[Rfam]
Shown here is a 65-nucleotide RNA from Cricetulus griseus, a member of the family "mir-290 microRNA precursor family". Rfam links the family to the GO terms RISC complex and miRNA-mediated post-transcriptional gene silencing. The family has 31 seed sequences and 565 matches in Rfam 15.1.

RNA sequence: GUGGUACUCAAACUACGGUGGCACUUUUUGUUUGGAAUAAAGUGCCACCAGGUUUUGAGCAUCAC
Numbered sequence: 001g002u003g004g005u006a007c008u009c010a011a012a013c014u015a016c017g018g019u020g021g022c023a024c025u026u027u028u029u030g031u032u033u034g035g036a037a038u039a040a041a042g043u044g045c046c047a048c049c050a051g052g053u054u055u056u057g058a059g060c061a062u063c064a065c
Stems, first nucleotide, its partner, number of pairs: 004062002007059006017049011
The source organism's lineage runs through Eukaryota, Eumetazoa, Tetrapoda, Amniota and Cricetulus. A search with the family's covariance model found it, with a score of 58 bits.